Record summary
This 135-nucleotide RNA from Ornithorhynchus anatinus belongs to the Rfam family "Small nucleolar RNA SNORA9". Its family is annotated with RNA processing and nucleolus in the Gene Ontology. ACA9 is a member of the H/ACA class of snoRNA that guide the sites of modification of uridines to pseudouridines.
[Rfam]
RNA sequence: UCGCAAGCCUACCAGCAUGUCUCGGCCUGACGUGGCCCUGGGUAUUCCUUUGGUGCUUGCCAGAGCAGCCUUGGGGUGGUUUGAGGCUUCUCCCUGCCCCCUUCCAGGGAGAGGUUAUAGAAAUCUCAGACAAUC
Numbered sequence: 001u002c003g004c005a006a007g008c009c010u011a012c013c014a015g016c017a018u019g020u021c022u023c024g025g026c027c028u029g030a031c032g033u034g035g036c037c038c039u040g041g042g043u044a045u046u047c048c049u050u051u052g053g054u055g056c057u058u059g060c061c062a063g064a065g066c067a068g069c070c071u072u073g074g075g076g077u078g079g080u081u082u083g084a085g086g087c088u089u090c091u092c093c094c095u096g097c098c099c100c101c102u103u104c105c106a107g108g109g110a111g112a113g114g115u116u117a118u119a120g121a122a123a124u125c126u127c128a129g130a131c132a133a134u135c
Stems, first nucleotide, its partner, number of pairs: 003060006018044003024037004072128005087114006094107003
The family is grouped with related families in Rfam's "SNORA9 clan".
It is annotated as an H/ACA-box small nucleolar RNA.
Rfam's curators put it in the seed alignment.
Rfam 15.1 lists 1,202 matches to the family in 518 species.
Taxonomically the source falls in Ornithorhynchus (Eukaryota, Chordata, Dipnotetrapodomorpha, Ornithorhynchidae).